[Rfam]
RNA: OmrA-B family
RNA sequence: CCCAGAGGUAUUUAUUGGUGAAUAUCCAACGUUCGCGUUGGAACCAUUUACUGGAUUACACCGACCUACGCGGAUGCGUAGGUUUUUUUU
Number, nucleotide and partner (000 for none) at each position: 001c000002c000003c000004a000005g000006a000007g000008g000009u000010a000011u000012u000013u000014a000015u000016u063017g062018g061019u060020g059021a052022a000023u000024a000025u000026c000027c000028a000029a000030c040031g039032u000033u000034c000035g000036c000037g000038u000039u031040g030041g000042a000043a000044c000045c000046a000047u000048u000049u000050a000051c000052u021053g000054g000055a000056u000057u000058a000059c020060a019061c018062c017063g016064a083065c082066c081067u080068a079069c078070g077071c076072g000073g000074a000075u000076g071077c070078g069079u068080a067081g066082g065083u064084u000085u000086u000087u000088u000089u000090u000